[Rfam]
RNA sequence: UUCGGAACCGGCAUAUGGCGGGCAGAGUGAAGCACCCUCUGUCUGCACUCCGCAGGUUCCCACAUAAACACGGAGGUCUCUGUCUGACUCAGGACAGCCACUGAGCUGGAUCGUUCCCUCCAGACAGC
Number, nucleotide and partner (000 for none) at each position: 001u000002u000003c000004g060005g059006a058007a000008c056009c055010g000011g053012c052013a000014u000015a000016u000017g000018g046019c045020g044021g043022g042023c041024a000025g000026a000027g039028u000029g037030a000031a000032g000033c000034a000035c000036c000037c029038u000039c027040u000041g023042u022043c021044u020045g019046c018047a000048c000049u000050c000051c000052g012053c011054a000055g009056g008057u000058u006059c005060c004061c000062a000063c000064a000065u000066a000067a000068a000069c000070a000071c000072g121073g120074a119075g118076g117077u000078c000079u000080c113081u000082g111083u110084c109085u000086g107087a000088c105089u104090c103091a102092g101093g000094a000095c000096a000097g000098c000099c000100a000101c092102u091103g090104a089105g088106c000107u086108g000109g084110a083111u082112c000113g080114u000115u000116c000117c076118c075119u074120c073121c072122a000123g000124a000125c000126a000127g000128c000
RNA: Small Cajal body specific RNA 3